Background:
This 82-nucleotide RNA from Actinopolymorpha pittospori belongs to the Rfam family "Actinobacteria sRNA Ms_AS-4". A search with the family's covariance model found it, with a score of 73 bits.

RNA sequence: GCGGGCGUCGGUGUAGCGGUCUGGGUCGUCUCCGAACUCGGCGAGCACCCGGGCACCAAGCGUCAUGCCGAGCCCUGGCUGG
Numbered sequence: 001g002c003g004g005g006c007g008u009c010g011g012u013g014u015a016g017c018g019g020u021c022u023g024g025g026u027c028g029u030c031u032c033c034g035a036a037c038u039c040g041g042c043g044a045g046c047a048c049c050c051g052g053g054c055a056c057c058a059a060g061c062g063u064c065a066u067g068c069c070g071a072g073c074c075c076u077g078g079c080u081g082g
Stems, first nucleotide, its partner, number of pairs: 008044003012040002018038003022034004056078002059076002062073002